Record summary:
SAM-I/IV (S-adenosyl methionine) riboswitch aptamer: a 120-nucleotide RNA sequence from Caenispirillum bisanense. Its Rfam clan is "SAM clan". NCBI's taxonomy places the organism under Bacteria, Alphaproteobacteria, Rhodospirillales, Novispirillaceae, Caenispirillum. It scores 62 bits against the family's covariance model.

RNA sequence: GUCCAGCAUCAAGAGCGUGGGCUGACGCCCAUCACCAACCUGCCAUCCCGGGCAAGGUGGUGCUCUCCGCAGAAAUAGCGCGGGGAAGAUGCGGCCGGACCGGCAACCAAACGGGUUCCA
Numbered sequence: 001g002u003c004c005a006g007c008a009u010c011a012a013g014a015g016c017g018u019g020g021g022c023u024g025a026c027g028c029c030c031a032u033c034a035c036c037a038a039c040c041u042g043c044c045a046u047c048c049c050g051g052g053c054a055a056g057g058u059g060g061u062g063c064u065c066u067c068c069g070c071a072g073a074a075a076u077a078g079c080g081c082g083g084g085g086a087a088g089a090u091g092c093g094g095c096c097g098g099a100c101c102g103g104c105a106a107c108c109a110a111a112c113g114g115g116u117u118c119c120a
Stems, first nucleotide, its partner, number of pairs: 006092005015033001017032005034061003039057003042053003047115004094104004